[Rfam]
RNA sequence: GUUCGUCGCAAAGCACUCCUCCUCCCAUGCUUUGCGAUACCAAGACCGGUCUCUCCUCCUCCCAAUUCCGGUCUGACAAUAAUGGCAUCCGUCGCACCUCCUCCCGCGUCGGAUGCCAUUU
Numbered sequence: 001g002u003u004c005g006u007c008g009c010a011a012a013g014c015a016c017u018c019c020u021c022c023u024c025c026c027a028u029g030c031u032u033u034g035c036g037a038u039a040c041c042a043a044g045a046c047c048g049g050u051c052u053c054u055c056c057u058c059c060u061c062c063c064a065a066u067u068c069c070g071g072u073c074u075g076a077c078a079a080u081a082a083u084g085g086c087a088u089c090c091g092u093c094g095c096a097c098c099u100c101c102u103c104c105c106g107c108g109u110c111g112g113a114u115g116c117c118a119u120u121u
Stems, first nucleotide, its partner, number of pairs: 005038003009034007043074007052065001085116007093108003
Dot-bracket structure: ....(((.(((((((............))))))).)))....(((((((..(............)..)))))))..........(((((((.(((..........))).))))))).....

The family of this 121-nucleotide RNA sequence from Brucella rhizosphaerae is "Alphaproteobacterial ar14". Smr14C2 was renamed NfeR1 (Nodule Formation Efficiency RNA) highly expressed in salt stress and during the symbiotic interaction on legume roots. Taxonomically the source falls in Brucella (Bacteria, Pseudomonadati, Pseudomonadota, Alphaproteobacteria).